PyrR binding site: a 137-nucleotide RNA sequence from Litchfieldia salsa. About the family: This family represents the PyrR binding site and terminator structure. This RNA structure is found upstream of a variety of genes involved in pyrimidine biosynthesis and transport. The alignment also includes a portion of the antiterminator structure. A reference for the family is Bonner et al. (2001), "Molecular recognition of pyr mRNA by the Bacillus subtilis attenuation regulatory protein PyrR", Nucleic Acids Res. Lineage of the source: Bacteria > Bacillota > Bacilli > Caryophanales > Litchfieldia.
RNA sequence: GGUACCUUUAAUUCAGUCCCGUGAGACUGGCAAGGUAAGCGGAAAAUAUGCAAACAUGUUUGGGUGAGGUGUAUCCUAUCCAACUAUAUUUGCAUGAUUAGAGGCUUCUUGUCAGAAACGGCAGGAAGCCUUUUUUU
Dot-bracket structure: ..((((((....((((((......)))))).)))))).......(.((((((((.(((..........................))).)))))))).)..(((((((((((((......))))))))))))).....

Overview
The match comes from Rfam's covariance-model search (59 bits). Rfam classes the family as a cis-regulatory element.